[Rfam]
RNA sequence: AGAUACCCAGAUCCUCUGAACCCGCAGCGUUCAGACUACGUGCACCUCUGCAGCAGGGGCAGGUCUGGUGCCA
Numbered sequence: 001a002g003a004u005a006c007c008c009a010g011a012u013c014c015u016c017u018g019a020a021c022c023c024g025c026a027g028c029g030u031u032c033a034g035a036c037u038a039c040g041u042g043c044a045c046c047u048c049u050g051c052a053g054c055a056g057g058g059g060c061a062g063g064u065c066u067g068g069u070g071c072c073a
Base pairs, nucleotide, nucleotide: 002072004070005069006068007067009066010065011064012063013062016034017033018032019031020030021029043059045057046056047055
Shown here is a 73-nucleotide RNA from Branchiostoma floridae, a member of the family "bZIP non canonical Hac1/Xbp1 intron".
NCBI's taxonomy places the organism under Eukaryota, Eumetazoa, Bilateria, Amphioxiformes, Branchiostoma.
From the family's description: bZIP intron RNA is a non-canonical intron that was first reported in HAC1 gene in yeast and XBP1 gene in Metazoa.
For this family Rfam cites "Conserved RNA structures in the non-canonical Hac1/Xbp1 intron" (Hooks and Griffiths-Jones, RNA Biol, 2011).
The base pairs follow the family's consensus structure, which was predicted with RNAfold.